[Rfam]
RNA sequence: AGUAUUUUAAAAGCGCCUGAACUAAUCAUCAGACGGUUUGAUUAGUUGACGAGGUGGAGGUUUAUCGAAAAUUCGGCGGAUACCUCCCGGUUGGAGACGCACAACCGAAAAUUUCUUCUUUAAAACAUGGAGGCAACUCUGUGCACAAAGAGAAGAAAAUGCGCAUAC
Numbered sequence: 001a002g003u004a005u006u007u008u009a010a011a012a013g014c015g016c017c018u019g020a021a022c023u024a025a026u027c028a029u030c031a032g033a034c035g036g037u038u039u040g041a042u043u044a045g046u047u048g049a050c051g052a053g054g055u056g057g058a059g060g061u062u063u064a065u066c067g068a069a070a071a072u073u074c075g076g077c078g079g080a081u082a083c084c085u086c087c088c089g090g091u092u093g094g095a096g097a098c099g100c101a102c103a104a105c106c107g108a109a110a111a112u113u114u115c116u117u118c119u120u121u122a123a124a125a126c127a128u129g130g131a132g133g134c135a136a137c138u139c140u141g142u143g144c145a146c147a148a149a150g151a152g153a154a155g156a157a158a159a160u161g162c163g164c165a166u167a168c
Stems, first nucleotide, its partner, number of pairs: 020047008028038001056087005065076004088107006112158007126143007

glmS glucosamine-6-phosphate activated ribozyme aptamer: a 168-nucleotide sequence from Neobacillus vireti. Rfam's curators write: This entry contains a glucosamine-6-phosphate activated ribozyme that is found in the mRNA for GlmS. GlmS is an enzyme that uses fructose-6-phosphate and glutamine to generate glucosamine-6-phosphate. The ribozyme catalyses self cleavage of the glmS mRNA that is thought to regulate GlmS activity. The family's RNA type in Rfam is riboswitch.